[Rfam]
RNA sequence: GGGGUAUGCUCAGAGCAAGGGGCCUAAAGAAUGGCUCCUCUGUUUAUAACAUGCCCAACAGGAAACUGGGAUCAUUGUGAUGAGGGGCACAGAACUUGUGGCCUCUCUAUCAACAAAUUCCCUACAUGU
Numbered sequence: 001g002g003g004g005u006a007u008g009c010u011c012a013g014a015g016c017a018a019g020g021g022g023c024c025u026a027a028a029g030a031a032u033g034g035c036u037c038c039u040c041u042g043u044u045u046a047u048a049a050c051a052u053g054c055c056c057a058a059c060a061g062g063a064a065a066c067u068g069g070g071a072u073c074a075u076u077g078u079g080a081u082g083a084g085g086g087g088c089a090c091a092g093a094a095c096u097u098g099u100g101g102c103c104u105c106u107c108u109a110u111c112a113a114c115a116a117a118u119u120c121c122c123u124a125c126a127u128g129u
Stems, first nucleotide, its partner, number of pairs: 002056007013045005019039003022035003069122002076115003082110001084104003088100005
This 129-nucleotide sequence from Otolemur garnettii belongs to the Rfam family "Small nucleolar RNA SNORA11". Rfam's curators put it in the seed alignment. About the family: U107 (SNORA11) is a member of the H/ACA class of snoRNAs that guide the sites of modification of uridines to pseudouridines. This snoRNA was identified by RT-PCR from blood cells and its expression confirmed by Northern blot analysis. The family's consensus secondary structure was predicted with RNAalifold. Lineage of the source: Eukaryota > Teleostomi > Dipnotetrapodomorpha > Amniota > Otolemur. A reference for the family is Gu et al. (2005), "A novel experimental approach for systematic identification of box H/ACA snoRNAs from eukaryotes", Nucleic Acids Res.